[Rfam]
RNA: small nucleolar RNA snoR137
Organism: Triticum urartu
RNA sequence: GUUGCUUCACAACUGGAAGAAUGGCCUGUUGUUAACAGUUUGGUCAUCCUGUAGAGAGAAGCAUAGAUGAACGAAAACACCAGCCAGCAUUAAACAACACGGUGCUUUAUCAAACUGCGUCGUGUUACCUGUCUUCUGGCACAUUU
Numbered sequence: 001g002u003u004g005c006u007u008c009a010c011a012a013c014u015g016g017a018a019g020a021a022u023g024g025c026c027u028g029u030u031g032u033u034a035a036c037a038g039u040u041u042g043g044u045c046a047u048c049c050u051g052u053a054g055a056g057a058g059a060a061g062c063a064u065a066g067a068u069g070a071a072c073g074a075a076a077a078c079a080c081c082a083g084c085c086a087g088c089a090u091u092a093a094a095c096a097a098c099a100c101g102g103u104g105c106u107u108u109a110u111c112a113a114a115c116u117g118c119g120u121c122g123u124g125u126u127a128c129c130u131g132u133c134u135u136c137u138g139g140c141a142c143a144u145u146u
Stems, first nucleotide, its partner, number of pairs: 003063006017050001019048002022046005083140005089134001096126003100122005